RNA sequence: UGGGCAUGAUGAGGAUAUUUAUGAACAUUUUCAUAUGGUCAUUCAUAUGAUGAAAACAAUCCUCCUACUCAUUCUGA
Numbered sequence: 001u002g003g004g005c006a007u008g009a010u011g012a013g014g015a016u017a018u019u020u021a022u023g024a025a026c027a028u029u030u031u032c033a034u035a036u037g038g039u040c041a042u043u044c045a046u047a048u049g050a051u052g053a054a055a056a057c058a059a060u061c062c063u064c065c066u067a068c069u070c071a072u073u074c075u076g077a
Stems, first nucleotide, its partner, number of pairs: 006072004031053002
A member of the RNA family "Small nucleolar RNA Z105" from Arachis duranensis, 77 nucleotides long. Pairs were carried over by alignment from the consensus structure, which was predicted with CMfinder. The literature on the family includes a 2003 paper in Nucleic Acids Res by Chen et al., "The high diversity of snoRNAs in plants: identification and comparative study of 120 snoRNA genes from Oryza sativa". Gene Ontology terms of the family: nucleolus and RNA processing. It scores 53 bits against the family's covariance model. The family has 11 seed sequences and 621 matches in Rfam 15.1.